[Rfam]
RNA sequence: GGCCCAAAUUCAAAGUAGAGUAGAUUAGUAGUAUCAGCUGACCUUACUAACCUACUAUACUUCAAAUUUGGAUCC
Number, nucleotide and partner (000 for none) at each position: 001g074002g073003c000004c071005c070006a069007a068008a067009u066010u000011c000012a000013a062014a061015g060016u059017a058018g000019a056020g055021u054022a053023g052024a000025u050026u049027a048028g047029u046030a045031g000032u000033a000034u041035c040036a000037g000038c000039u000040g035041a034042c000043c000044u000045u030046a029047c028048u027049a026050a025051c000052c023053u022054a021055c020056u019057a000058u017059a016060c015061u014062u013063c000064a000065a000066a009067u008068u007069u006070g005071g004072a000073u002074c001075c000
RNA: mir-5928 microRNA precursor family
Organism: Haemonchus placei